[Rfam]
RNA sequence: UGCACCUAAAAGCGUUUUCUUGCCAGCCUAUUAAAUGCUGUUGAAAAUCGUAGAUGUGUGCAAGAGCAAGCUUUACAAUAGCAAGUGAUAUUAGUUCUUAUAAUAACUUUGAUCCGUUUACGUUGUGAACAUCC
Numbered sequence: 001u002g003c004a005c006c007u008a009a010a011a012g013c014g015u016u017u018u019c020u021u022g023c024c025a026g027c028c029u030a031u032u033a034a035a036u037g038c039u040g041u042u043g044a045a046a047a048u049c050g051u052a053g054a055u056g057u058g059u060g061c062a063a064g065a066g067c068a069a070g071c072u073u074u075a076c077a078a079u080a081g082c083a084a085g086u087g088a089u090a091u092u093a094g095u096u097c098u099u100a101u102a103a104u105a106a107c108u109u110u111g112a113u114c115c116g117u118u119u120a121c122g123u124u125g126u127g128a129a130c131a132u133c134c
Stems, first nucleotide, its partner, number of pairs: 001062005006056001012051003015047005022038002025036001073128007083119005088113002093108004

Shown here is a 134-nucleotide RNA from Drosophila gunungcola, a member of the family "Small nucleolar RNA psi28S-3316". Rfam classes the family as an H/ACA-box small nucleolar RNA. It scores 131 bits against the family's covariance model. The organism belongs to elegans subgroup (in: flies), within Eukaryota.